[Rfam]
RNA sequence: AAAAACUGCCUUUCAGGCAUCCUCUCCUAAAACUUUCAUAGGCCGGUCGUUCGCGAUCGGCCUCUUUUUUGCGCUCC
Numbered sequence: 001a002a003a004a005a006c007u008g009c010c011u012u013u014c015a016g017g018c019a020u021c022c023u024c025u026c027c028u029a030a031a032a033c034u035u036u037c038a039u040a041g042g043c044c045g046g047u048c049g050u051u052c053g054c055g056a057u058c059g060g061c062c063u064c065u066u067u068u069u070u071g072c073g074c075u076c077c
Base pairs, nucleotide, nucleotide: 008018009017010016011015041062042061043060044059045058046057047056048055049054